[Rfam]
RNA sequence: UUUAACUGUGACUAGUCUUACAGACCAGUAAUGAGUUACGGGUAUGAUCGCAACCAUUAAUUAACAUUUAAGGGACUGAGUUAUU
Numbered sequence: 001u002u003u004a005a006c007u008g009u010g011a012c013u014a015g016u017c018u019u020a021c022a023g024a025c026c027a028g029u030a031a032u033g034a035g036u037u038a039c040g041g042g043u044a045u046g047a048u049c050g051c052a053a054c055c056a057u058u059a060a061u062u063a064a065c066a067u068u069u070a071a072g073g074g075a076c077u078g079a080g081u082u083a084u085u
Stems, first nucleotide, its partner, number of pairs: 003083004
Shown here is an 85-nucleotide RNA from Vigna angularis, a member of the family "Small nucleolar RNA SNORD25". The family's consensus secondary structure was predicted with PFOLD. Taxonomically the source falls in Vigna angularis (Eukaryota, Viridiplantae, Magnoliopsida, Phaseoleae). Gene Ontology terms of the family: nucleolus and RNA processing. The match comes from Rfam's covariance-model search (50 bits). By type it is a C/D-box small nucleolar RNA. Its Rfam clan is "SNORD25 clan".